The family of this 340-nucleotide sequence from Candidatus Arthromitus sp. SFB-turkey is "Bacterial RNase P class A". Rfam describes the family as follows. Ribonuclease P (RNase P) is a ubiquitous endoribonuclease, found in archaea, bacteria and eukarya as well as chloroplasts and mitochondria. Lineage of the source: Bacteria > Bacillota > Eubacteriales > Clostridiaceae > Candidatus Neoarthromitus. Pairs were carried over by alignment from the consensus structure, which is taken from published work.
RNA sequence: AGAGUAAAUCAGACAAUCGCUGCUUAAGAUUUUUAAGGAGAGGAAAGUCCGAGCUCCAUAGGGCAGGGUGCUUGGUAACACCAAGUGGAGGCGACUCUAAGGAAAGUGCAACAGAAAUAAACCGCCUAUUUUAUAGGUAAGGAUGGAAAGGCGAGGUAAGAGCUCACCAGCAGUAUGGUGACAUACUGGCUAUGUAAACCCCACCUGGAGCAAGACUGAAUAGGAUAGCGUUAAGGUUGCCCGCUUUGCUAUCGGGUAUGUCGCUCGAGUCUAUUGGUGACAAUAGACCUAGAUAGAUGAUUGUCUAAUACAGAACUCGGCUUAUAGAUUUGCUCUAAAU
Numbered sequence: 001a002g003a004g005u006a007a008a009u010c011a012g013a014c015a016a017u018c019g020c021u022g023c024u025u026a027a028g029a030u031u032u033u034u035a036a037g038g039a040g041a042g043g044a045a046a047g048u049c050c051g052a053g054c055u056c057c058a059u060a061g062g063g064c065a066g067g068g069u070g071c072u073u074g075g076u077a078a079c080a081c082c083a084a085g086u087g088g089a090g091g092c093g094a095c096u097c098u099a100a101g102g103a104a105a106g107u108g109c110a111a112c113a114g115a116a117a118u119a120a121a122c123c124g125c126c127u128a129u130u131u132u133a134u135a136g137g138u139a140a141g142g143a144u145g146g147a148a149a150g151g152c153g154a155g156g157u158a159a160g161a162g163c164u165c166a167c168c169a170g171c172a173g174u175a176u177g178g179u180g181a182c183a184u185a186c187u188g189g190c191u192a193u194g195u196a197a198a199c200c201c202c203a204c205c206u207g208g209a210g211c212a213a214g215a216c217u218g219a220a221u222a223g224g225a226u227a228g229c230g231u232u233a234a235g236g237u238u239g240c241c242c243g244c245u246u247u248g249c250u251a252u253c254g255g256g257u258a259u260g261u262c263g264c265u266c267g268a269g270u271c272u273a274u275u276g277g278u279g280a281c282a283a284u285a286g287a288c289c290u291a292g293a294u295a296g297a298u299g300a301u302u303g304u305c306u307a308a309u310a311c312a313g314a315a316c317u318c319g320g321c322u323u324a325u326a327g328a329u330u331u332g333c334u335c336u337a338a339a340u
Stems, first nucleotide, its partner, number of pairs: 001336010011325001012305007020040002023037006045323003049320005054210004061242004066206005071085005086100001087098004101201002106199002108195003122142002124138006150168002153165003170190001171188007214262003224253006233247005269288008